Source information
Shown here is a 132-nucleotide RNA sequence from Tauraco erythrolophus, a member of the family "Small nucleolar RNA SNORA1". Rfam 15.1 lists 1,282 matches to the family in 515 species. A search with the family's covariance model found it, with a score of 94 bits. Rfam describes the family as follows. ACA1 is a member of the H/ACA class of snoRNA that guide the sites of modification of uridines to pseudouridines.
RNA sequence: CGCCUCGUUAUUCAGCAAAUAGACACAACCCACCAUGUGUCCGAAUUGGAAAACGUGGCUAGAGAACUUACAGGUUGUGCUUUCCUCGCUGCAGAGUUAAUUGCAGUGGUGACAAUGAGACCUGUAACAGGU
Numbered sequence: 001c002g003c004c005u006c007g008u009u010a011u012u013c014a015g016c017a018a019a020u021a022g023a024c025a026c027a028a029c030c031c032a033c034c035a036u037g038u039g040u041c042c043g044a045a046u047u048g049g050a051a052a053a054c055g056u057g058g059c060u061a062g063a064g065a066a067c068u069u070a071c072a073g074g075u076u077g078u079g080c081u082u083u084c085c086u087c088g089c090u091g092c093a094g095a096g097u098u099a100a101u102u103g104c105a106g107u108g109g110u111g112a113c114a115a116u117g118a119g120a121c122c123u124g125u126a127a128c129a130g131g132u
Stems, first nucleotide, its partner, number of pairs: 002059003006055003022041006070125005084111001086109004
Dot-bracket structure: .(((.(((.............((((((........))))))...........))).)))..........(((((.........(.((((................)))).).........))))).......